The family of this 146-nucleotide sequence from Aegilops tauschii is "small nucleolar RNA snoR137". The family's consensus secondary structure was predicted with RNAalifold. Gene Ontology terms of the family: nucleolus and RNA processing.
[Rfam]
Nucleotides: 146
Stems, first nucleotide, its partner, number of pairs: 003063006017052001019050002022046005083140005089134001096126003100122005
Number, partner (000 for none) and nucleotide at each position: 001000g002000u003063u004062g005061c006060u007059u008058c009000a010000c011000a012000a013000c014000u015000g016000g017052a018000a019050g020049g021000a022046u023045g024044g025043c026042c027000u028000g029000u030000u031000g032000a033000u034000a035000a036000c037000a038000g039000u040000u041000u042026g043025g044024u045023c046022a047000u048000c049020c050019u051000g052017u053000a054000g055000a056000g057000g058008g059007a060006a061005g062004c063003a064000u065000a066000g067000a068000u069000g070000a071000a072000c073000g074000g075000a076000a077000a078000c079000a080000c081000c082000g083140g084139c085138c086137a087136g088000c089134a090000u091000u092000a093000a094000a095000c096126a097125g098124c099000a100122u101121g102120a103119u104118g105000c106000u107000c108000u109000a110000u111000u112000a113000a114000a115000c116000c117000g118104c119103g120102u121101c122100a123000u124098g125097u126096u127000a128000c129000c130000u131000g132000u133000c134089u135000u136087c137086u138085g139084g140083c141000a142000c143000a144000u145000u146000u
A search with the family's covariance model found it, with a score of 63 bits. Taxonomically the source falls in Aegilops tauschii (Eukaryota, Magnoliopsida, Liliopsida, Petrosaviidae).